The family of this 60-nucleotide sequence from Roseicitreum antarcticum is "terC RNA".

RNA sequence: ACUGGUGGCCGGGCCCCUCUGGCGGAAGUGGCGGCGCUUUCGUGAUGUCGGACACCGAAU
Numbered sequence: 001a002c003u004g005g006u007g008g009c010c011g012g013g014c015c016c017c018u019c020u021g022g023c024g025g026a027a028g029u030g031g032c033g034g035c036g037c038u039u040u041c042g043u044g045a046u047g048u049c050g051g052a053c054a055c056c057g058a059a060u
Stems, first nucleotide, its partner, number of pairs: 006054002009051004022043008
The family's RNA type in Rfam is cis-regulatory element. NCBI's taxonomy places the organism under Bacteria, Alphaproteobacteria, Rhodobacterales, Paracoccaceae, Roseicitreum.